[Rfam]
RNA: Bacterial RNase P class A
RNA sequence: UGGGUCGGCAAGACGGUCGCGUCAUCCUUCGCACCGCGUCGCAAGACGCAGGGCGCUGUGAUGCCGAGGAACGUCCGGGCUCCGCAGAGCAGGGCGGUGGGUAACACCCACCCGGGGCAACCCGAGAGCAAGUGCAACAGAGAGCAGACCGCCACGUGCGCAAGCACGGGGUAAGGGUGAAACGGUGGUGUAAGAGACCACCAGGGGCCUGGGUGAUCAGGCUCGCUAGGUAAACCUCGCCCGGAGCAAGGUCAAGCAGGGAACGCUGAGGCGGCUCGCCGAGUUCCCGGGUAGACCGCUAGAGGGCUGCGGCAACGCAGUCCCGAGAUAGAUGACCGUCACCUGCGAAAGCAGGGACAGAACCCGGCGUAGCAGCCGGCCCAUUCC
Numbered sequence: 001u002g003g004g005u006c007g008g009c010a011a012g013a014c015g016g017u018c019g020c021g022u023c024a025u026c027c028u029u030c031g032c033a034c035c036g037c038g039u040c041g042c043a044a045g046a047c048g049c050a051g052g053g054c055g056c057u058g059u060g061a062u063g064c065c066g067a068g069g070a071a072c073g074u075c076c077g078g079g080c081u082c083c084g085c086a087g088a089g090c091a092g093g094g095c096g097g098u099g100g101g102u103a104a105c106a107c108c109c110a111c112c113c114g115g116g117g118c119a120a121c122c123c124g125a126g127a128g129c130a131a132g133u134g135c136a137a138c139a140g141a142g143a144g145c146a147g148a149c150c151g152c153c154a155c156g157u158g159c160g161c162a163a164g165c166a167c168g169g170g171g172u173a174a175g176g177g178u179g180a181a182a183c184g185g186u187g188g189u190g191u192a193a194g195a196g197a198c199c200a201c202c203a204g205g206g207g208c209c210u211g212g213g214u215g216a217u218c219a220g221g222c223u224c225g226c227u228a229g230g231u232a233a234a235c236c237u238c239g240c241c242c243g244g245a246g247c248a249a250g251g252u253c254a255a256g257c258a259g260g261g262a263a264c265g266c267u268g269a270g271g272c273g274g275c276u277c278g279c280c281g282a283g284u285u286c287c288c289g290g291g292u293a294g295a296c297c298g299c300u301a302g303a304g305g306g307c308u309g310c311g312g313c314a315a316c317g318c319a320g321u322c323c324c325g326a327g328a329u330a331g332a333u334g335a336c337c338g339u340c341a342c343c344u345g346c347g348a349a350a351g352c353a354g355g356g357a358c359a360g361a362a363c364c365c366g367g368c369g370u371a372g373c374a375g376c377c378g379g380c381c382c383a384u385u386c387c
Stems, first nucleotide, its partner, number of pairs: 001383009012340007020066002023063004028058001071370003075367005080246004087277004092242005097111005112126001113124004127237002132235002134231002149176002151172003155168005184202006204226001205224008250297004259288006270280003304323008
Dot-bracket structure: (((((((((..(((((((.((.((((.(.............................).)))).))....[[[.[[[[[((((...[[[[.((((((((((.....)))))(((((....)))).)((...((((.............(((((.(((((....))))).)))..)).......((((((.......)))))).(((((((((....)))))))).)...))..)))))))))))))...((((.....((((((.....(((.]]]])))..)))))).....))))......((((((((....))))))))..........)))))))......................]]]]]]]]....)))))))))....